The family of this 124-nucleotide RNA from Artemisia annua is "Small nucleolar RNA snoR77". On this family, see Marker et al., Curr Biol 2002: "Experimental RNomics: identification of 140 candidates for small non-messenger RNAs in the plant Arabidopsis thaliana". Lineage of the source: Eukaryota > Magnoliopsida > Gunneridae > Asterales > Artemisia. By type it is an H/ACA-box small nucleolar RNA. The base pairs follow the family's consensus structure, which was predicted with WAR. The match comes from Rfam's covariance-model search (104 bits).

RNA sequence: AGGCAACCACCUUUCGUAAAUAUUACUCGAUUGGUAGGUGUUAUUCUGUUCGUAAAUUAAUUUCUUUUGCUCUUCAGACUUGUUGAGUUUCCAAUGAAACUGGUCUAGUAAGCUAAAGUACAAU
Numbered sequence: 001a002g003g004c005a006a007c008c009a010c011c012u013u014u015c016g017u018a019a020a021u022a023u024u025a026c027u028c029g030a031u032u033g034g035u036a037g038g039u040g041u042u043a044u045u046c047u048g049u050u051c052g053u054a055a056a057u058u059a060a061u062u063u064c065u066u067u068u069g070c071u072c073u074u075c076a077g078a079c080u081u082g083u084u085g086a087g088u089u090u091c092c093a094a095u096g097a098a099a100c101u102g103g104u105c106u107a108g109u110a111a112g113c114u115a116a117a118g119u120a121c122a123a124u
Stems, first nucleotide, its partner, number of pairs: 002042004007038002009035003014030003064118003069113003076106005082100003087092001